[Rfam]
RNA sequence: UUCAGGAGCAAGCAGUCCCGGUAGGGGCGGAGGACCCAACUCAACCGUUCCUGGCCGAUGGCCAUGGUUCUUGGGGUGAAGCUGAGUCCGCCCAGGUGGGCUCGGCCGAGUAGAUCUCAUGACUCGAAUCCGACAGCUAACUUCGCAGGCGAUACAUGAGAGGUAGU
Numbered sequence: 001u002u003c004a005g006g007a008g009c010a011a012g013c014a015g016u017c018c019c020g021g022u023a024g025g026g027g028c029g030g031a032g033g034a035c036c037c038a039a040c041u042c043a044a045c046c047g048u049u050c051c052u053g054g055c056c057g058a059u060g061g062c063c064a065u066g067g068u069u070c071u072u073g074g075g076g077u078g079a080a081g082c083u084g085a086g087u088c089c090g091c092c093c094a095g096g097u098g099g100g101c102u103c104g105g106c107c108g109a110g111u112a113g114a115u116c117u118c119a120u121g122a123c124u125c126g127a128a129u130c131c132g133a134c135a136g137c138u139a140a141c142u143u144c145g146c147a148g149g150c151g152a153u154a155c156a157u158g159a160g161a162g163g164u165a166g167u
Stems, first nucleotide, its partner, number of pairs: 001026003027146006037073002074131003082105010108125004